Shown here is a 330-nucleotide RNA sequence from Sitta europaea, a member of the family "7SK RNA". Rfam describes the family as follows. 7SK was discovered as an abundant small nuclear RNA in the mid-70s but a possible function has only recently been suggested. Two independent studies have found that 7SK RNA binds the CDK9/cyclin T complex (known as elongation factor P-TEFb). P-TEFb activates transcription by phosphorylating the C-terminal domain of RNA polymerase II. This process is negatively regulated by the 7SK RNP. The secondary structure of 7SK RNA shown here was proposed by Wasserman and Steitz on the basis of chemical modification and enzymatic cleavage experiments. This family contains a number of annotated pseudogenes and 7SK derived repeats. NCBI's taxonomy places the organism under Eukaryota, Dipnotetrapodomorpha, Archosauria, Theropoda, Sitta. Its Rfam clan is "7SK clan". It is annotated as a non-coding RNA gene. The base pairs follow the family's consensus structure, which is taken from published work. The literature on the family includes a 2002 paper in Curr Biol by Blencowe, "Transcription: surprising role for an elusive small nuclear RNA".
RNA sequence: GGAUAUGAGAGUAAUCUGGCUGUGAGAUCAAAUAUGUCAUUGAUUGCAUGGGUUGAUCUGACUGAUCUGGCUAGCUUAGGCACGUGUUCCCUUUCUUCCUUGACAUUCCAUGUGGGUUCCUCCUGAUGCCACGUGCUUAGUUAAUGAGGACAGCCUCCCCAGUAGACAUGGUUAAUUGGUCAAGGGUGUGUGAUAGCUGUGCUCCCCUGCUGGAAGCUCUAAGUAAGCUCAAGGCCCAUUUGUAGAUGAAUGUAGGGUAGUCAAGCAUCCAAUGUUGAAGACACAUCUAAAUGAGAAGCUGCAUGCUGCAGUCUGACAGAGGCUUUUUUU
Numbered sequence: 001g002g003a004u005a006u007g008a009g010a011g012u013a014a015u016c017u018g019g020c021u022g023u024g025a026g027a028u029c030a031a032a033u034a035u036g037u038c039a040u041u042g043a044u045u046g047c048a049u050g051g052g053u054u055g056a057u058c059u060g061a062c063u064g065a066u067c068u069g070g071c072u073a074g075c076u077u078a079g080g081c082a083c084g085u086g087u088u089c090c091c092u093u094u095c096u097u098c099c100u101u102g103a104c105a106u107u108c109c110a111u112g113u114g115g116g117u118u119c120c121u122c123c124u125g126a127u128g129c130c131a132c133g134u135g136c137u138u139a140g141u142u143a144a145u146g147a148g149g150a151c152a153g154c155c156u157c158c159c160c161a162g163u164a165g166a167c168a169u170g171g172u173u174a175a176u177u178g179g180u181c182a183a184g185g186g187u188g189u190g191u192g193a194u195a196g197c198u199g200u201g202c203u204c205c206c207c208u209g210c211u212g213g214a215a216g217c218u219c220u221a222a223g224u225a226a227g228c229u230c231a232a233g234g235c236c237c238a239u240u241u242g243u244a245g246a247u248g249a250a251u252g253u254a255g256g257g258u259a260g261u262c263a264a265g266c267a268u269c270c271a272a273u274g275u276u277g278a279a280g281a282c283a284c285a286u287c288u289a290a291a292u293g294a295g296a297a298g299c300u301g302c303a304u305g306c307u308g309c310a311g312u313c314u315g316a317c318a319g320a321g322g323c324u325u326u327u328u329u330u
Stems, first nucleotide, its partner, number of pairs: 001109003006102004011097001013094002018091002024088002027085002033079001035074001037070003042067004046062001117171002121166002123140004128136002141162002148158003196266003202260002205257006217248001220245001223243005289330003293325003298312005